A member of the RNA family "Actino-pnp RNA" from Mycobacterium sp. ITM-2016-00318, 60 nucleotides long. The source organism's lineage runs through Bacteria, Actinomycetes, Mycobacteriales, Mycobacteriaceae and Mycobacterium.

RNA sequence: GGCGGUCUUCGGUAGUGGCUGCCGGGGUUUUCACUCCGGCCGCUUCGAUCGACGGCCGUA
Number, nucleotide and partner (000 for none) at each position: 001g000002g059003c058004g057005g056006u055007c054008u000009u052010c051011g050012g049013u048014a000015g000016u000017g044018g043019c042020u000021g040022c039023c038024g037025g036026g035027g034028u033029u000030u000031u000032c000033a028034c027035u026036c025037c024038g023039g022040c021041c000042g019043c018044u017045u000046c000047g000048a013049u012050c011051g010052a009053c000054g007055g006056c005057c004058g003059u002060a000